[Rfam]
RNA sequence: CCAGAAGGGAAGAAGCAUUCUUUCAUUGGUUGGUGUAUGUUGCCUUGUCAACCAAUCAGAGGAUGCCAUUUAUCCUUUUCUG
Numbered sequence: 001c002c003a004g005a006a007g008g009g010a011a012g013a014a015g016c017a018u019u020c021u022u023u024c025a026u027u028g029g030u031u032g033g034u035g036u037a038u039g040u041u042g043c044c045u046u047g048u049c050a051a052c053c054a055a056u057c058a059g060a061g062g063a064u065g066c067c068a069u070u071u072a073u074c075c076u077u078u079u080c081u082g
Stems, first nucleotide, its partner, number of pairs: 004079007012071003015066009025056011
The record is an 82-nucleotide sequence from Bos taurus, which matches "mir-1179 microRNA precursor family" in Rfam. The family's consensus secondary structure was predicted with RNAalifold. Lineage of the source: Eukaryota > Metazoa > Gnathostomata > Eutheria > Bos.